[Rfam]
RNA: c-di-AMP riboswitch aptamer (ydaO/yuaA leader)
Nucleotides: 165
Stems, first nucleotide, its partner, number of pairs: 001023002025144006035045001046129003054103007106123004
Number, partner (000 for none) and nucleotide at each position: 001023c002022c003000g004000c005000a006000g007000g008000g009000g010000g011000u012000g013000c014000u015000g016000u017000g018000c019000a020000u021000c022002g023001g024000a025144g026143c027142c028141g029140g030139g031000g032000a033000a034000c035045c036000a037000c038000g039000u040000u041000c042000c043000u044000c045035g046129g047128g048127g049000u050000g051000a052000a053000u054103c055102g056101g057100c058099g059098c060097c061000a062000g063000g064000u065000c066000g067000g068000c069000a070000g071000g072000c073000c074000g075000u076000c077000g078000u079000g080000a081000g082000a083000c084000g085000g086000u087000g088000a089000g090000c091000c092000g093000g094000u095000g096000a097060g098059g099058c100057g101056u102055c103054g104000u105000a106123g107122g108121g109120c110000a111000u112000c113000u114000c115000u116000u117000c118000c119000a120109g121108c122107c123106c124000g125000a126000a127048c128047c129046c130000g131000u132000c133000a134000g135000c136000u137000c138000a139030c140029c141028c142027g143026g144025u145000a146000g147000g148000c149000g150000g151000c152000c153000g154000u155000a156000g157000g158000a159000a160000g161000a162000a163000g164000g165000a